[Rfam]
Nucleotides: 096
Stems, first nucleotide, its partner, number of pairs: 001043005010031008067096005073090001075088003
Number, partner (000 for none) and nucleotide at each position: 001043u002042g003041a004040u005039c006000g007000a008000g009000u010031g011030g012029u013028c014027u015026g016025c017024g018000g019000u020000g021000g022000g023000a024017c025016g026015c027014g028013g029012a030011c031010c032000g033000a034000g035000a036000a037000u038000g039005g040004a041003u042002c043001a044000a045000c046000g047000g048000a049000c050000c051000c052000c053000a054000c055000g056000c057000c058000g059000u060000c061000a062000c063000u064000g065000a066000c067096g068095a069094g070093g071092c072000g073090c074000a075088c076087c077086g078000u079000a080000g081000c082000c083000c084000g085000a086077c087076g088075g089000c090073g091000c092071g093070u094069u095068u096067c

Record summary: This 96-nucleotide RNA sequence from Rhodobacteraceae bacterium PD-2 belongs to the Rfam family "Rhodo-rpoB RNA". The sequence is in the family's curated seed alignment. The organism belongs to Paracoccaceae, within Bacteria.